The record is a 121-nucleotide RNA sequence from Formicarius rufipectus, which matches "Small nucleolar RNA SNORA17" in Rfam. Rfam links the family to the GO terms RNA processing and nucleolus. The literature on the family includes a 1997 paper in J Mol Biol by Ofengand and Bakin, "Mapping to nucleotide resolution of pseudouridine residues in large subunit ribosomal RNAs from representative eukaryotes, prokaryotes, archaebacteria, mitochondria and chloroplasts". Taxonomically the source falls in Formicarius (Eukaryota, Opisthokonta, Teleostomi, Sauropsida).
RNA sequence: CCUGCCCCAGCUCGUGUUGCAGGCGUGGCUGCAGUGCCACGUUUGUGUCAUUCGGUGGCAGAGGACAAGGCGAGGUCUUCUCCUGGUGCUCCCAGGUGGGCUCCCAGGAUUGCUCAACAAU
Numbered sequence: 001c002c003u004g005c006c007c008c009a010g011c012u013c014g015u016g017u018u019g020c021a022g023g024c025g026u027g028g029c030u031g032c033a034g035u036g037c038c039a040c041g042u043u044u045g046u047g048u049c050a051u052u053c054g055g056u057g058g059c060a061g062a063g064g065a066c067a068a069g070g071c072g073a074g075g076u077c078u079u080c081u082c083c084u085g086g087u088g089c090u091c092c093c094a095g096g097u098g099g100g101c102u103c104c105c106a107g108g109a110u111u112g113c114u115c116a117a118c119a120a121u
Stems, first nucleotide, its partner, number of pairs: 002061005007055002010052001014048002019046004024041006069118001072115003079109001083107004088101004